Description: Shown here is a 62-nucleotide RNA from Mastigocoleus testarum, a member of the family "Nitrogen stress-induced RNA 1". Taxonomically the source falls in Mastigocoleus testarum (Bacteria, Cyanophyceae, Nostocales, Hapalosiphonaceae). By type it is a small RNA. The base pairs follow the family's consensus structure. A search with the family's covariance model found it, with a score of 57 bits.
RNA sequence: UGGUAGAUGCACCCUGAUAAUCCACUCCCCUUGCUAACUCAAAAUGGCACGGGGAUUUUUUU
Number, nucleotide and partner (000 for none) at each position: 001u000002g013003g012004u011005a000006g000007a000008u000009g000010c000011a004012c003013c002014c000015u000016g000017a000018u000019a000020a000021u000022c000023c000024a000025c000026u000027c054028c053029c052030c051031u000032u049033g048034c047035u046036a045037a000038c000039u000040c000041a000042a000043a000044a000045u036046g035047g034048c033049a032050c000051g030052g029053g028054g027055a000056u000057u000058u000059u000060u000061u000062u000